[Rfam]
RNA sequence: GGCGAUAAAUUGCCAUCGUAAUAAACCCAUCGGACCCGGGGGCAGUGCCCGGCGCCUCCACCAAUCCCUGUCGCUGGCAGGGCCAUGGGGGCGAAACAGGCUCGACGAGGGCGUAAAGGGUGUGUUUUCGCUCGGCAUGGUACCGCCGAUAUCGGACCAAACUUAUAGUUGCCAACGACAACUAUGCUGGGCGUCGUCUCCUCGCUGCUUAA
Numbered sequence: 001g002g003c004g005a006u007a008a009a010u011u012g013c014c015a016u017c018g019u020a021a022u023a024a025a026c027c028c029a030u031c032g033g034a035c036c037c038g039g040g041g042g043c044a045g046u047g048c049c050c051g052g053c054g055c056c057u058c059c060a061c062c063a064a065u066c067c068c069u070g071u072c073g074c075u076g077g078c079a080g081g082g083c084c085a086u087g088g089g090g091g092c093g094a095a096a097c098a099g100g101c102u103c104g105a106c107g108a109g110g111g112c113g114u115a116a117a118g119g120g121u122g123u124g125u126u127u128u129c130g131c132u133c134g135g136c137a138u139g140g141u142a143c144c145g146c147c148g149a150u151a152u153c154g155g156a157c158c159a160a161a162c163u164u165a166u167a168g169u170u171g172c173c174a175a176c177g178a179c180a181a182c183u184a185u186g187c188u189g190g191g192c193g194u195c196g197u198c199u200c201c202u203c204g205c206u207g208c209u210u211a212a
Stems, first nucleotide, its partner, number of pairs: 001132005014122004026111003030108003036052005053093007133148004